Annotation:
The family of this 76-nucleotide RNA sequence from Myotis lucifugus is "mir-9229 microRNA precursor family". NCBI's taxonomy places the organism under Eukaryota, Metazoa, Theria, Laurasiatheria, Myotis. The family's consensus secondary structure was predicted with RNAalifold.
RNA sequence: GAGACACCCUUAUGGGGCAAGACUUGCUUCUGUGGGGCUCUGGUGCUCUCGGAGUCUGCCCCCUGUGUGUGUCCCU
Numbered sequence: 001g002a003g004a005c006a007c008c009c010u011u012a013u014g015g016g017g018c019a020a021g022a023c024u025u026g027c028u029u030c031u032g033u034g035g036g037g038c039u040c041u042g043g044u045g046c047u048c049u050c051g052g053a054g055u056c057u058g059c060c061c062c063c064u065g066u067g068u069g070u071g072u073c074c075c076u
Stems, first nucleotide, its partner, number of pairs: 001075001003073005009067001011065002014062006021056003029053004034048003037044002